[Rfam]
RNA sequence: CAGGGGGCCGAGGCAGCUGCGGGGUCGAAAGAUCGCGAGGAAAGUCCGGGCUCCACGAAGCAAAGGUGGCGGGUAAUGCCCGCCGAGUGUUCGCCUUUUAGGCGGGCAUUUAGGGAAAGUGCCACAGAGAGUAUACCGCCGAUGGCCCCUAAAGGGCACAGGCAAGGGUGAAAGGGUGCGGUAAAGGCGCACCGGGGCGCUGGUAACAUCGUCCGCAUGGUAAACCCCACCUGGAGCAAGGCCAAAUAGGGAUCUCGCGCCGUUACGGCAGGAGCGCUUCGCGCCGAGAGAUCCGGGUUGGCUGCUUGAGCUGUUCAGCAAUGGACAGCCUAGAUGAAUGGUUGCCGCCGCACGGCAGGUCUGCCUGGCAGAUACCGCGGGCGGAGACAGAACCCGGCUUAUGAAGCCCCCUGACAC
Numbered sequence: 001c002a003g004g005g006g007g008c009c010g011a012g013g014c015a016g017c018u019g020c021g022g023g024g025u026c027g028a029a030a031g032a033u034c035g036c037g038a039g040g041a042a043a044g045u046c047c048g049g050g051c052u053c054c055a056c057g058a059a060g061c062a063a064a065g066g067u068g069g070c071g072g073g074u075a076a077u078g079c080c081c082g083c084c085g086a087g088u089g090u091u092c093g094c095c096u097u098u099u100a101g102g103c104g105g106g107c108a109u110u111u112a113g114g115g116a117a118a119g120u121g122c123c124a125c126a127g128a129g130a131g132u133a134u135a136c137c138g139c140c141g142a143u144g145g146c147c148c149c150u151a152a153a154g155g156g157c158a159c160a161g162g163c164a165a166g167g168g169u170g171a172a173a174g175g176g177u178g179c180g181g182u183a184a185a186g187g188c189g190c191a192c193c194g195g196g197g198c199g200c201u202g203g204u205a206a207c208a209u210c211g212u213c214c215g216c217a218u219g220g221u222a223a224a225c226c227c228c229a230c231c232u233g234g235a236g237c238a239a240g241g242c243c244a245a246a247u248a249g250g251g252a253u254c255u256c257g258c259g260c261c262g263u264u265a266c267g268g269c270a271g272g273a274g275c276g277c278u279u280c281g282c283g284c285c286g287a288g289a290g291a292u293c294c295g296g297g298u299u300g301g302c303u304g305c306u307u308g309a310g311c312u313g314u315u316c317a318g319c320a321a322u323g324g325a326c327a328g329c330c331u332a333g334a335u336g337a338a339u340g341g342u343u344g345c346c347g348c349c350g351c352a353c354g355g356c357a358g359g360u361c362u363g364c365c366u367g368g369c370a371g372a373u374a375c376c377g378c379g380g381g382c383g384g385a386g387a388c389a390g391a392a393c394c395c396g397g398c399u400u401a402u403g404a405a406g407c408c409c410c411c412u413g414a415c416a417c
Base pairs, nucleotide, nucleotide: 001413002412003411004410005409006408007407008406011402012346013345014344015343016342017341018340020037021036023034024033025032026031042400043399044398046397047396048395049394050393051236052235053234054233060279064232065231066230067229068228069083070082071081072080073079084113085111086110087109088108089107090106091105092104093103094102095101096100114227115226119225120224121221122220123219136167137166138163139162140161143158144157146155175193176192177191178190179189180188194216195214196213197212198211199210201208202207240303241302242301243300250294251293252292253291254290255289271285272284274282275281310329311328312327313326314325315324316323317322
RNA: Bacterial RNase P class A